[Rfam]
RNA sequence: UGAUCAAAGAACGAAUCGUCGAAUCGGAUGUCUGUGAAUAUGGUCAGAAAUUCGAAUCGACAUUCGACCUAUGGUUAU
Numbered sequence: 001u002g003a004u005c006a007a008a009g010a011a012c013g014a015a016u017c018g019u020c021g022a023a024u025c026g027g028a029u030g031u032c033u034g035u036g037a038a039u040a041u042g043g044u045c046a047g048a049a050a051u052u053c054g055a056a057u058c059g060a061c062a063u064u065c066g067a068c069c070u071a072u073g074g075u076u077a078u
Base pairs, nucleotide, nucleotide: 002076003075004074005073006072008070009069012066013065014064015063016062018061019060020059021058022057024055025054026053027052028051029050031048032047033046